[Rfam]
RNA sequence: GGGAUAUGAUGAGAUAAUACUUAGUCCGUGUUUCUGAUGACAUGUGAUUGCUGAUGUAUUGCUGAUCCC
Numbered sequence: 001g002g003g004a005u006a007u008g009a010u011g012a013g014a015u016a017a018u019a020c021u022u023a024g025u026c027c028g029u030g031u032u033u034c035u036g037a038u039g040a041c042a043u044g045u046g047a048u049u050g051c052u053g054a055u056g057u058a059u060u061g062c063u064g065a066u067c068c069c
Stems, first nucleotide, its partner, number of pairs: 001069004
The family of this 69-nucleotide sequence from Patiria miniata is "Small nucleolar RNA SNORD18". The family's consensus secondary structure was predicted with PFOLD. Gene Ontology terms of the family: nucleolus and RNA processing. It is annotated as a C/D-box small nucleolar RNA. The family has 16 seed sequences and 2,622 matches in Rfam 15.1.